[Rfam]
RNA sequence: GGAGUUGGUCAGACAAUCGCCGCUUUAUGACUCGGUAUUUAUAUCGAGGUUAUAGAGGGGAGGAAAGUCCGGGCUCCACAGGGCAGGGUGCCAGGUAACGCCUGGGAGGCGCAAGCCUACGACAAGUGCAGCAGAGAGAAGACCGCCGAUGGCUUUUUCGGAAGCACAGGUAAGGCUGAAAGGGUGCGGUAAGAGCGCACCGGACGACUAGUAAUAGUUCGUUGCAGGGUAAACUCCACCCGGAGCAAGACCAAAUAGGCUUUCUAUAGGCGUGGCCCACGCUGAAAGCGGGUAGGUUGCUUGAGUCUGUGAGUGAUUGCAGACCUAGAGGAAUGAUUGUCCACGACAAAACCCGGCUUAUCGACCAACUCCAAGA
Dot-bracket structure: ((((((((((((((((((.((.((((((((((...............)))))))))).))....[[[.[[[[[((((...[[[[.((((((((((.....)))))(((((....)))).)((...((((.............(((((..((((((......)))).)))))..)).......((((((.......))))))(((((((((....))).))))).)...))..)))))))))))))...((((......((((((....(((((.]]]]))))))))))).....))))......((((((((....))))))))..........)))))))..........]]]]]]]].).))))))))))....
Numbered sequence: 001g002g003a004g005u006u007g008g009u010c011a012g013a014c015a016a017u018c019g020c021c022g023c024u025u026u027a028u029g030a031c032u033c034g035g036u037a038u039u040u041a042u043a044u045c046g047a048g049g050u051u052a053u054a055g056a057g058g059g060g061a062g063g064a065a066a067g068u069c070c071g072g073g074c075u076c077c078a079c080a081g082g083g084c085a086g087g088g089u090g091c092c093a094g095g096u097a098a099c100g101c102c103u104g105g106g107a108g109g110c111g112c113a114a115g116c117c118u119a120c121g122a123c124a125a126g127u128g129c130a131g132c133a134g135a136g137a138g139a140a141g142a143c144c145g146c147c148g149a150u151g152g153c154u155u156u157u158u159c160g161g162a163a164g165c166a167c168a169g170g171u172a173a174g175g176c177u178g179a180a181a182g183g184g185u186g187c188g189g190u191a192a193g194a195g196c197g198c199a200c201c202g203g204a205c206g207a208c209u210a211g212u213a214a215u216a217g218u219u220c221g222u223u224g225c226a227g228g229g230u231a232a233a234c235u236c237c238a239c240c241c242g243g244a245g246c247a248a249g250a251c252c253a254a255a256u257a258g259g260c261u262u263u264c265u266a267u268a269g270g271c272g273u274g275g276c277c278c279a280c281g282c283u284g285a286a287a288g289c290g291g292g293u294a295g296g297u298u299g300c301u302u303g304a305g306u307c308u309g310u311g312a313g314u315g316a317u318u319g320c321a322g323a324c325c326u327a328g329a330g331g332a333a334u335g336a337u338u339g340u341c342c343a344c345g346a347c348a349a350a351a352c353c354c355g356g357c358u359u360a361u362c363g364a365c366c367a368a369c370u371c372c373a374a375g376a
Stems, first nucleotide, its partner, number of pairs: 001372010011361001012341007020060002023057010065359003069356005074245004081278004086241005091105005106120001107118004121236002126234002128230002143175002145171003150168002152165004183201006202225001203223005208217003249298004259289006269283005305324008